[Rfam]
Nucleotides: 212
Stems, first nucleotide, its partner, number of pairs: 039067005073211005087206003091202001092200003100150005109142006115130005152183005
Number, partner (000 for none) and nucleotide at each position: 001000a002000u003000c004000u005000u006000g007000g008000g009000g010000u011000u012000a013000c014000a015000a016000a017000c018000a019000a020000a021000u022000u023000a024000a025000c026000c027000a028000a029000a030000g031000g032000c033000g034000c035000u036000u037000g038000c039067u040066g041065c042064c043063u044000c045000a046000g047000c048000u049000u050000g051000a052000c053000a054000u055000c056000u057000a058000a059000a060000a061000g062000a063043a064042g065041g066040c067039a068000c069000a070000a071000a072000c073211a074210u075209c076208g077207c078000a079000u080000g081000g082000c083000u084000a085000c086000a087206a088205g089204a090000a091202g092200a093199g094198g095000u096000u097000u098000u099000a100150g101149u102148a103147c104146g105000u106000a107000g108000g109142c110141g111140c112139u113138g114137u115130g116129g117128a118127a119126c120000u121000u122000u123000c124000u125000a126119g127118u128117u129116c130115u131000g132000a133000u134000g135000a136000u137114g138113c139112a140111g141110u142109g143000a144000a145000u146104c147103g148102u149101g150100c151000a152183u153182g154181c155180g156179g157000c158000a159000a160000u161000u162000c163000a164000c165000c166000c167000g168000u169000a170000g171000u172000a173000a174000g175000g176000u177000g178000a179156c180155c181154g182153u183152a184000u185000c186000u187000u188000u189000c190000g191000a192000a193000g194000a195000u196000u197000u198094c199093c200092u201000c202091c203000c204089u205088c206087u207077g208076c209075g210074a211073u212000c
The record is a 212-nucleotide RNA sequence from Drosophila willistoni, which matches "R2 RNA element" in Rfam. About the family: This family represents the 3' UTR region of the R2 retrotransposable element. This family is known to interact with the R2-encoded reverse transcriptase in a reaction known as target primed reverse transcription (TPRT). Lineage of the source: Eukaryota > Neoptera > Acalyptratae > Drosophilini > Sophophora. The literature on the family includes a 1993 paper in Cell by Luan et al., "Reverse transcription of R2Bm RNA is primed by a nick at the chromosomal target site: a mechanism for non-LTR retrotransposition". Rfam links the family to the GO term regulation of reverse transcription. By type it is a cis-regulatory element.